Record summary:
The family of this 253-nucleotide sequence from Peribacillus deserti is "T-box leader". Rfam 15.1 lists 19,395 matches to the family in 1,923 species. A search with the family's covariance model found it, with a score of 116 bits. Gene Ontology term of the family: tRNA binding. The base pairs follow the family's consensus structure, which is taken from published work. By type it is a cis-regulatory leader.
RNA sequence: GUUAAAGCGAUGAAGAGAAGAGUAAUUAAGCAUGUAUUAUACAAAGAGAGCUCCGGUAGGUGAAAAGGAGCAAUAGUCGGCUUAAUGAAAAAAGUCUCGGAGUAUCUUACUAAGCUAAUGUAAUAUUAGGGAUUGUAAGACGGGUUAUCCCGUUAUAGAGAUAGGGUAUGUAUGUUUAUACCCAUAGAGGCUGAUAUGGUGACGUAUCAGCAAACUGAGGUGGUACCGCGAAGACACAGCUCUCGCCCUCAAG
Numbered sequence: 001g002u003u004a005a006a007g008c009g010a011u012g013a014a015g016a017g018a019a020g021a022g023u024a025a026u027u028a029a030g031c032a033u034g035u036a037u038u039a040u041a042c043a044a045a046g047a048g049a050g051c052u053c054c055g056g057u058a059g060g061u062g063a064a065a066a067g068g069a070g071c072a073a074u075a076g077u078c079g080g081c082u083u084a085a086u087g088a089a090a091a092a093a094g095u096c097u098c099g100g101a102g103u104a105u106c107u108u109a110c111u112a113a114g115c116u117a118a119u120g121u122a123a124u125a126u127u128a129g130g131g132a133u134u135g136u137a138a139g140a141c142g143g144g145u146u147a148u149c150c151c152g153u154u155a156u157a158g159a160g161a162u163a164g165g166g167u168a169u170g171u172a173u174g175u176u177u178a179u180a181c182c183c184a185u186a187g188a189g190g191c192u193g194a195u196a197u198g199g200u201g202a203c204g205u206a207u208c209a210g211c212a213a214a215c216u217g218a219g220g221u222g223g224u225a226c227c228g229c230g231a232a233g234a235c236a237c238a239g240c241u242c243u244c245g246c247c248c249u250c251a252a253g
Stems, first nucleotide, its partner, number of pairs: 007103002015098004025086006039074002050071005106139005112133001141152003190211007217250004228246004